[Rfam]
tRNA: a 68-nucleotide sequence. The sequence is in the family's curated seed alignment. Gene Ontology term of the family: triplet codon-amino acid adaptor activity.
RNA sequence: GUUAAUGUAGCUUAAUAACAAAGCAAAGCACUGAAAAUGCUUAGAUGGAUAAUUGUAUCCCAUAAACA
Dot-bracket structure: (((.(((..((((.......)))).(((((.......)))))....((((......))))))).))).